A member of the RNA family "mir-302 microRNA precursor family" from Neotoma lepida, 68 nucleotides long. A search with the family's covariance model found it, with a score of 61 bits. The literature on the family includes a 2004 paper in Dev Biol by Suh et al., "Human embryonic stem cells express a unique set of microRNAs". Rfam 15.1 lists 2,090 matches to the family in 516 species. Pairs were carried over by alignment from the consensus structure, which was predicted with RNAalifold.
[Rfam]
RNA sequence: UCCUUUCUUUAACAUGGAGGCACUUGCUGUGAGUUUAUAAAAAUAAGUGCUCCAUGUUUCAGUGUGGU
Numbered sequence: 001u002c003c004u005u006u007c008u009u010u011a012a013c014a015u016g017g018a019g020g021c022a023c024u025u026g027c028u029g030u031g032a033g034u035u036u037a038u039a040a041a042a043a044u045a046a047g048u049g050c051u052c053c054a055u056g057u058u059u060c061a062g063u064g065u066g067g068u
Stems, first nucleotide, its partner, number of pairs: 002067002005064001007062002011058008020050007028042001
Gene Ontology terms of the family: RISC complex and miRNA-mediated post-transcriptional gene silencing.